RNA sequence: AGGUCAUUUCAAAGAGGUCUUGUGAGGCUGUGAAACCAAGAGCUCUUAACACUGCGACCAAAGAUGGAAGUUCUCUAUAGGAUGCCAUGGCAUUUGAUGGUGCUAUGUUUUCUUGAGGAGAUAUAAGA
Numbered sequence: 001a002g003g004u005c006a007u008u009u010c011a012a013a014g015a016g017g018u019c020u021u022g023u024g025a026g027g028c029u030g031u032g033a034a035a036c037c038a039a040g041a042g043c044u045c046u047u048a049a050c051a052c053u054g055c056g057a058c059c060a061a062a063g064a065u066g067g068a069a070g071u072u073c074u075c076u077a078u079a080g081g082a083u084g085c086c087a088u089g090g091c092a093u094u095u096g097a098u099g100g101u102g103c104u105a106u107g108u109u110u111u112c113u114u115g116a117g118g119a120g121a122u123a124u125a126a127g128a
Base pairs, nucleotide, nucleotide: 002059003058004057005056007054014047015046016045017044019042020041021040023039026037027036072121073120074119075118076117079114080113081112082111087106088105089104090103091102092101093100094099
Rfam assigns this 128-nucleotide RNA to the family "Small nucleolar RNA SNORA25". ACA25 is a member of the H/ACA class of snoRNA that guide the sites of modification of uridines to pseudouridines. Rfam classes the family as an H/ACA-box small nucleolar RNA. Rfam 15.1 lists 1,129 matches to the family in 449 species. The base pairs follow the family's consensus structure, which was predicted with RNAfold.